[Rfam]
Nucleotides: 115
Stems, first nucleotide, its partner, number of pairs: 007109007020045003047094003050090002054088003060081005
Number, partner (000 for none) and nucleotide at each position: 001000g002000a003000g004000a005000a006000a007109u008108u009107c010106g011105g012104g013103a014000g015000a016000g017000a018000g019000a020045u021044u022043c023000c024000g025000a026000c027000c028000u029000g030000u031000u032000u033000u034000g035000u036000g037000a038000g039000c040000g041000u042000c043022g044021g045020a046000c047094g048093c049092c050090g051089a052000a053000g054088g055087g056086g057000c058000a059000a060081c061080g062079c063078a064077a065000a066000a067000c068000g069000u070000u071000u072000u073000u074000u075000c076000a077064u078063u079062g080061c081060g082000g083000a084000a085000a086056c087055u088054c089051u090050c091000a092049g093048g094047c095000a096000c097000a098000a099000a100000g101000g102000a103013u104012c105011c106010c107009g108008a109007g110000c111000g112000g113000a114000c115000g
This 115-nucleotide RNA from Pyramidobacter sp. CG50-2 belongs to the Rfam family "Glycine riboswitch aptamer". The match comes from Rfam's covariance-model search (53 bits).